[Rfam]
c-di-AMP riboswitch aptamer (ydaO/yuaA leader): a 141-nucleotide sequence from Polymorphospora rubra. The organism belongs to Polymorphospora, within Bacteria. The match comes from Rfam's covariance-model search (89 bits). Its family is annotated with cyclic-di-AMP binding and regulation of gene expression in the Gene Ontology.
RNA sequence: GACUCGACACCGCCGAGUCGCAGCAAGGUCGUGAGCCGGGGACCCAGGCACCAUCGGGGUGAAUCCGCAGAACCUGCGGUAGGGCGCAACUCUCCCGCCCGAACCCGUCAGCUAACCCGGUAGGCGGUUCCCGAAGGAGAA
Numbered sequence: 001g002a003c004u005c006g007a008c009a010c011c012g013c014c015g016a017g018u019c020g021c022a023g024c025a026a027g028g029u030c031g032u033g034a035g036c037c038g039g040g041g042a043c044c045c046a047g048g049c050a051c052c053a054u055c056g057g058g059g060u061g062a063a064u065c066c067g068c069a070g071a072a073c074c075u076g077c078g079g080u081a082g083g084g085c086g087c088a089a090c091u092c093u094c095c096c097g098c099c100c101g102a103a104c105c106c107g108u109c110a111g112c113u114a115a116c117c118c119g120g121u122a123g124g125c126g127g128u129u130c131c132c133g134a135a136g137g138a139g140a141a
Base pairs, nucleotide, nucleotide: 011126012125013124014123018034019033020032035121036120037119038118039117040116045056057106058105059104065079066078067077068076082100083099084098085097